[Rfam]
RNA sequence: AACGCAUCGGAUUUCCCGGUGUAACGAAUUUUCAAGUGCUUCUUGCAUUAGCAAGUUUGAUCCCGACUCCUGCGAGUCGGGAUUU
Number, nucleotide and partner (000 for none) at each position: 001a000002a000003c000004g022005c021006a020007u019008c018009g017010g016011a000012u000013u000014u000015c000016c010017c009018g008019g007020u006021g005022u004023a000024a000025c000026g058027a057028a056029u054030u053031u051032u050033c000034a048035a000036g046037u045038g044039c000040u000041u000042c000043u000044u038045g037046c036047a000048u034049u000050a032051g031052c000053a030054a029055g000056u028057u027058u026059g000060a083061u082062c081063c080064c079065g078066a077067c000068u075069c074070c000071u000072g000073c000074g069075a068076g000077u066078c065079g064080g063081g062082a061083u060084u000085u000
DsrA RNA: an 85-nucleotide sequence from Klebsiella aerogenes.
On this family, see Sledjeski and Gottesman, Proc Natl Acad Sci USA 1995: "A small RNA acts as an antisilencer of the H-NS-silenced rcsA gene of Escherichia coli".
Taxonomically the source falls in Klebsiella (Bacteria, Pseudomonadati, Pseudomonadota, Gammaproteobacteria).